[Rfam]
Shown here is a 73-nucleotide RNA from Nesidiocoris tenuis, a member of the family "mir-137 microRNA precursor family".
Taxonomically the source falls in Nesidiocoris (Eukaryota, Protostomia, Pterygota, Panheteroptera).
On this family, see Chen et al., Genes Dev 2005: "The developmental miRNA profiles of zebrafish as determined by small RNA cloning".
The family's consensus secondary structure was predicted with RNAalifold.
Clan: mir-137 clan.
Its family is annotated with miRNA-mediated post-transcriptional gene silencing and RISC complex in the Gene Ontology.
The family has 62 seed sequences and 1,138 matches in Rfam 15.1.
RNA sequence: GUUGGCCACGUGUAUUCUUGGGGAAUUAACACACUCUUAACGCUGUUAUUGCUUGAGAAUACACGUAGCUAAC
Numbered sequence: 001g002u003u004g005g006c007c008a009c010g011u012g013u014a015u016u017c018u019u020g021g022g023g024a025a026u027u028a029a030c031a032c033a034c035u036c037u038u039a040a041c042g043c044u045g046u047u048a049u050u051g052c053u054u055g056a057g058a059a060u061a062c063a064c065g066u067a068g069c070u071a072a073c
Stems, first nucleotide, its partner, number of pairs: 001073005008066003012062011025050001027048005032042001